The family of this 90-nucleotide sequence from Medicago truncatula is "MIR2617 microRNA precursor family". The match comes from Rfam's covariance-model search (55 bits). The family has 3 seed sequences and 1,174 matches in Rfam 15.1. Rfam links the family to the GO terms miRNA-mediated post-transcriptional gene silencing and RISC complex.
[Rfam]
RNA sequence: UAGUAGUGUGACAUGCCCGUUUGGAAUUUACUCUGAUGUAUGUUUACUUAUUAUUUAAAUUGUUUUUGGGUAACGGGGUGUUACAAUUGG
Numbered sequence: 001u002a003g004u005a006g007u008g009u010g011a012c013a014u015g016c017c018c019g020u021u022u023g024g025a026a027u028u029u030a031c032u033c034u035g036a037u038g039u040a041u042g043u044u045u046a047c048u049u050a051u052u053a054u055u056u057a058a059a060u061u062g063u064u065u066u067u068g069g070g071u072a073a074c075g076g077g078g079u080g081u082u083a084c085a086a087u088u089g090g
Base pairs, nucleotide, nucleotide: 005087007085008084009083010082011081012080013079014078016077017076018075019074020073021072
Dot-bracket structure: ....(.((((((((.((((((..................................................)))))))))))))).)...